[Rfam]
RNA sequence: AGUCACAAGUUUGAGGCCAUAGCAGCAGCUCUCAUGGUGCGGCCAUAUCAGACUCCACCGAAUCUGUGAAUUCUGCU
Numbered sequence: 001a002g003u004c005a006c007a008a009g010u011u012u013g014a015g016g017c018c019a020u021a022g023c024a025g026c027a028g029c030u031c032u033c034a035u036g037g038u039g040c041g042g043c044c045a046u047a048u049c050a051g052a053c054u055c056c057a058c059c060g061a062a063u064c065u066g067u068g069a070a071u072u073c074u075g076c077u
Stems, first nucleotide, its partner, number of pairs: 015044004021077005027071001028040002049066004054061002
The record is a 77-nucleotide RNA sequence from Crocodylus porosus, which matches "Mammalian CPEB3 ribozyme" in Rfam. On this family, see Salehi-Ashtiani et al., Science 2006: "A genomewide search for ribozymes reveals an HDV-like sequence in the human CPEB3 gene". It scores 43 bits against the family's covariance model.